[Rfam]
RNA sequence: CUGGCGCGCUGGGCAGCCGCGGGACGCUCGUCGUCUCGAGGAAAGUCCGGACAUCACAGGGCAGGGUGGUCGGGAGACCGACCCGGGGAAACCCGCGGGAAAGUGCCACAGAAAUACACCGCCGAUGGCGCUUCGCGCACAGGCAAGGUUGAAAAGGUGCGGUAAGAGCGCACCGGCGUCGUGGUGACACGGCGGCCAGGUAAACCCCACCCGAUGCAAGACCGAGCAGAGCCGCUCGUAGGCGGCCCGCCGAGGCUCAGGUAGGUCGCAAAGAUGGAUGGUUGCCUCCGACAGAAUCCGGCUUACAGGCGCGCUACCACC
Numbered sequence: 001c002u003g004g005c006g007c008g009c010u011g012g013g014c015a016g017c018c019g020c021g022g023g024a025c026g027c028u029c030g031u032c033g034u035c036u037c038g039a040g041g042a043a044a045g046u047c048c049g050g051a052c053a054u055c056a057c058a059g060g061g062c063a064g065g066g067u068g069g070u071c072g073g074g075a076g077a078c079c080g081a082c083c084c085g086g087g088g089a090a091a092c093c094c095g096c097g098g099g100a101a102a103g104u105g106c107c108a109c110a111g112a113a114a115u116a117c118a119c120c121g122c123c124g125a126u127g128g129c130g131c132u133u134c135g136c137g138c139a140c141a142g143g144c145a146a147g148g149u150u151g152a153a154a155a156g157g158u159g160c161g162g163u164a165a166g167a168g169c170g171c172a173c174c175g176g177c178g179u180c181g182u183g184g185u186g187a188c189a190c191g192g193c194g195g196c197c198a199g200g201u202a203a204a205c206c207c208c209a210c211c212c213g214a215u216g217c218a219a220g221a222c223c224g225a226g227c228a229g230a231g232c233c234g235c236u237c238g239u240a241g242g243c244g245g246c247c248c249g250c251c252g253a254g255g256c257u258c259a260g261g262u263a264g265g266u267c268g269c270a271a272a273g274a275u276g277g278a279u280g281g282u283u284g285c286c287u288c289c290g291a292c293a294g295a296a297u298c299c300g301g302c303u304u305a306c307a308g309g310c311g312c313g314c315u316a317c318c319a320c321c
Stems, first nucleotide, its partner, number of pairs: 002316009011306001012286007020038007043304003047301005052216004059248004064212005069082005083097001084095004098207002103205002105201003119148002121144003126141002156174006176196001177194007220267004229258005241251003
RNA: Bacterial RNase P class A
Organism: Solirubrobacteraceae bacterium